[Rfam]
RNA sequence: UCUAGUGGCAUUGUACCCAGAGUCUGCCAUUCAGACAUUGUACCUGGAGCCGGGGAAAAAAAAUAAAAAGUUGAC
Numbered sequence: 001u002c003u004a005g006u007g008g009c010a011u012u013g014u015a016c017c018c019a020g021a022g023u024c025u026g027c028c029a030u031u032c033a034g035a036c037a038u039u040g041u042a043c044c045u046g047g048a049g050c051c052g053g054g055g056a057a058a059a060a061a062a063a064u065a066a067a068a069a070g071u072u073g074a075c
Stems, first nucleotide, its partner, number of pairs: 006052004017047004022036005
Rfam assigns this 75-nucleotide RNA from Phascolarctos cinereus to the family "U1A polyadenylation inhibition element (PIE)". This family represents the U1A polyadenylation inhibition element (PIE). PIE is a regulatory RNA which is responsible for the regulation of the length of the polyA tail of the U1A pre-mRNA. The PIE is located in the U1A mRNA 3' UTR. PIE adopts a U-shaped structure, with binding sites for a single U1A protein at each bend and when complexed with the two proteins it blocks activity of poly(A) polymerase (PAP), and inhibits its activity. Gene Ontology term of the family: regulation of mRNA polyadenylation. Lineage of the source: Eukaryota > Gnathostomata > Teleostomi > Phascolarctidae > Phascolarctos. It is annotated as a cis-regulatory element.